[Rfam]
RNA sequence: ACAAAAGAGGCAGGGAGAUUAAAUUCUUGUCGAAAUUCGCGGUCAAGUCUUGGGAGGAUCAGAUCUAAGGCGCGUUUAAUCGCUGCCGCCGGAAACGGAGAAGGAUCACGCGAAACUUAAAAAACAAGGCUUUAAGCCUUGUUUUUUUUU
Number, nucleotide and partner (000 for none) at each position: 001a000002c000003a150004a149005a148006a147007g000008a000009g000010g000011c029012a028013g027014g026015g025016a024017g000018a000019u000020u000021a000022a000023a000024u016025u015026c014027u013028u012029g011030u000031c000032g000033a000034a000035a000036u000037u000038c112039g111040c110041g109042g000043u000044c000045a000046a000047g059048u058049c057050u056051u000052g000053g000054g000055a000056g050057g049058a048059u047060c000061a000062g107063a106064u105065c104066u103067a000068a000069g087070g086071c085072g083073c082074g081075u000076u000077u000078a000079a000080u000081c074082g073083c072084u000085g071086c070087c069088g000089c098090c097091g096092g000093a000094a000095a000096c091097g090098g089099a000100g000101a000102a000103g066104g065105a064106u063107c062108a000109c041110g040111c039112g038113a000114a000115a000116c000117u000118u000119a000120a000121a000122a000123a143124a142125c141126a140127a139128g138129g137130c136131u000132u000133u000134a000135a000136g130137c129138c128139u127140u126141g125142u124143u123144u000145u000146u000147u006148u005149u004150u003
RNA: Alphaproteobacterial sRNA ar9
Organism: Rhizobium sp. RU20A